The record is an 83-nucleotide RNA from Castor canadensis, which matches "mir-632 microRNA precursor family" in Rfam. The family has 8 seed sequences and 126 matches in Rfam 15.1. Pairs were carried over by alignment from the consensus structure, which was predicted with RNAalifold. For this family Rfam cites "Genome-wide comparative analysis of microRNAs in three non-human primates" (Brameier, BMC Res Notes, 2010).
RNA sequence: UCCACCGCAGUGUCUGACGGGAGGCGGAGAGCGAACGAGCCUGUCGGCCAUUUUGUGUCGGCUUCCUGUGGGACGCGGUGUGG
Number, nucleotide and partner (000 for none) at each position: 001u000002c000003c080004a079005c078006c077007g076008c075009a000010g074011u073012g000013u000014c072015u071016g000017a069018c068019g067020g066021g065022a064023g063024g062025c061026g000027g059028a058029g056030a054031g053032c000033g049034a000035a000036c046037g045038a044039g000040c000041c000042u000043g000044u038045c037046g036047g000048c000049c033050a000051u000052u000053u031054u030055g000056u029057g000058u028059c027060g000061g025062c024063u023064u022065c021066c020067u019068g018069u017070g000071g015072g014073a011074c010075g008076c007077g006078g005079u004080g003081u000082g000083g000